[Rfam]
RNA sequence: CAGGCAACAGCAUCCUGGUGCUGCCUGAGUGCAUGUCACAAACUCCAGCAUCAGUGAUUUUGUUGCCAG
Numbered sequence: 001c002a003g004g005c006a007a008c009a010g011c012a013u014c015c016u017g018g019u020g021c022u023g024c025c026u027g028a029g030u031g032c033a034u035g036u037c038a039c040a041a042a043c044u045c046c047a048g049c050a051u052c053a054g055u056g057a058u059u060u061u062g063u064u065g066c067c068a069g
Stems, first nucleotide, its partner, number of pairs: 006064005012058003015054009
RNA: mir-338 microRNA precursor family